A member of the RNA family "Pseudomonas sRNA P26" from Pseudomonas oryzae, 65 nucleotides long. NCBI's taxonomy places the organism under Bacteria, Pseudomonadota, Gammaproteobacteria, Pseudomonadales, Pseudomonas. Rfam's curators write: This small RNA (sRNA) was computationally identified in the genome of the opportunistic pathogen Pseudomonas aeruginosa and its expression verified by northern blot analysis. P26 is conserved across many Gammaproteobacteria species and appears to be consistently located between the DNA directed RNA polymerase (beta subunit) and 50S ribosomal protein L7/L12 genes. It is annotated as a non-coding RNA gene. On this family, see Livny et al., Nucleic Acids Res 2006: "Identification of 17 Pseudomonas aeruginosa sRNAs and prediction of sRNA-encoding genes in 10 diverse pathogens using the bioinformatic tool sRNAPredict2".
RNA sequence: GACAUUGCGUCGACAGUCCGCGAGUCGAUUUCGGACUGAUGGCUGGUGGCAGAUGCCACCGGCCU
Numbered sequence: 001g002a003c004a005u006u007g008c009g010u011c012g013a014c015a016g017u018c019c020g021c022g023a024g025u026c027g028a029u030u031u032c033g034g035a036c037u038g039a040u041g042g043c044u045g046g047u048g049g050c051a052g053a054u055g056c057c058a059c060c061g062g063c064c065u
Stems, first nucleotide, its partner, number of pairs: 014038005022030002041064010